The record is a 68-nucleotide RNA from Castor canadensis, which matches "mir-290 microRNA precursor family" in Rfam.

[Rfam]
RNA sequence: GUGGCACUCAAAUGUGGGAGCGCUCUUCUGGUAUGCAGGUAGAAAGUGCUACGACAUUUGGGUGUCAC
Number, nucleotide and partner (000 for none) at each position: 001g000002u000003g000004g065005c064006a063007c062008u061009c060010a059011a058012a057013u000014g055015u054016g000017g052018g000019a050020g049021c048022g047023c046024u045025c000026u044027u043028c042029u000030g000031g000032u000033a000034u000035g000036c000037a000038g000039g000040u000041a000042g028043a027044a026045a024046g023047u022048g021049c020050u019051a000052c017053g000054a015055c014056a000057u012058u011059u010060g009061g008062g007063u006064g005065u004066c000067a000068c000
Taxonomically the source falls in Castor (Eukaryota, Eumetazoa, Vertebrata, Dipnotetrapodomorpha). Its Rfam clan is "mir-290 clan".